[Rfam]
RNA sequence: GGCUCCAGCAGCCCCUCCUGAUGAUCCCUCUUCCUGAACGGCUCCAGUGAUGAGCAAACUGAGCCUCUAAGAAGUUGACUGAAGGGGCUGCUUCCUC
Numbered sequence: 001g002g003c004u005c006c007a008g009c010a011g012c013c014c015c016u017c018c019u020g021a022u023g024a025u026c027c028c029u030c031u032u033c034c035u036g037a038a039c040g041g042c043u044c045c046a047g048u049g050a051u052g053a054g055c056a057a058a059c060u061g062a063g064c065c066u067c068u069a070a071g072a073a074g075u076u077g078a079c080u081g082a083a084g085g086g087g088c089u090g091c092u093u094c095c096u097c
Base pairs, nucleotide, nucleotide: 007092008091009090010089011088012087013086014085015084

Notes
The record is a 97-nucleotide RNA sequence from Ochotona princeps, which matches "Small nucleolar RNA SNORD125" in Rfam. Rfam 15.1 lists 526 matches to the family in 498 species. Pairs were carried over by alignment from the consensus structure, which was predicted with WAR. The sequence is in the family's curated seed alignment.